[Rfam]
RNA sequence: UGCCAUAUGAACCCUUAUCAUUCUCGAGUCUUGUGAAUAUUUGACCCGACUGGACGGAGAACUGAUAAGGGCUUGUGGGCAA
Numbered sequence: 001u002g003c004c005a006u007a008u009g010a011a012c013c014c015u016u017a018u019c020a021u022u023c024u025c026g027a028g029u030c031u032u033g034u035g036a037a038u039a040u041u042u043g044a045c046c047c048g049a050c051u052g053g054a055c056g057g058a059g060a061a062c063u064g065a066u067a068a069g070g071g072c073u074u075g076u077g078g079g080c081a082a
Stems, first nucleotide, its partner, number of pairs: 012071009021061005029053002